[Rfam]
RNA sequence: AACAAUGAAAAGGGGUGCUGGAGUGGAAUCCGGCUGAGAUGGAAUAUGUUCUGAACCCUGAUACCUGAUCUGGAUAAUGCCAGCGUAGGAAGCCUGCAGAAGAUGUGAAU
Numbered sequence: 001a002a003c004a005a006u007g008a009a010a011a012g013g014g015g016u017g018c019u020g021g022a023g024u025g026g027a028a029u030c031c032g033g034c035u036g037a038g039a040u041g042g043a044a045u046a047u048g049u050u051c052u053g054a055a056c057c058c059u060g061a062u063a064c065c066u067g068a069u070c071u072g073g074a075u076a077a078u079g080c081c082a083g084c085g086u087a088g089g090a091a092g093c094c095u096g097c098a099g100a101a102g103a104u105g106u107g108a109a110u
Stems, first nucleotide, its partner, number of pairs: 006098002009095001011059004016053001017034005041052004064089004070083004